[Rfam]
Shown here is an 80-nucleotide RNA sequence from Desulfobacter postgatei, a member of the family "c-di-GMP-I-GGC riboswitch aptamer". Pairs were carried over by alignment from the consensus structure, which is taken from published work.
RNA sequence: ACAGUCAAAGCCAAACCUGACGAAAGUCAGGGACGGAAAGACACGGAUUCUAAUUAAAGGGGACAGCCGGGUUGCCUGAA
Numbered sequence: 001a002c003a004g005u006c007a008a009a010g011c012c013a014a015a016c017c018u019g020a021c022g023a024a025a026g027u028c029a030g031g032g033a034c035g036g037a038a039a040g041a042c043a044c045g046g047a048u049u050c051u052a053a054u055u056a057a058a059g060g061g062g063a064c065a066g067c068c069g070g071g072u073u074g075c076c077u078g079a080a
Base pairs, nucleotide, nucleotide: 003077004076011036012035016031017030018029019028020027021026034066039073040072042070044069045068046067048063049062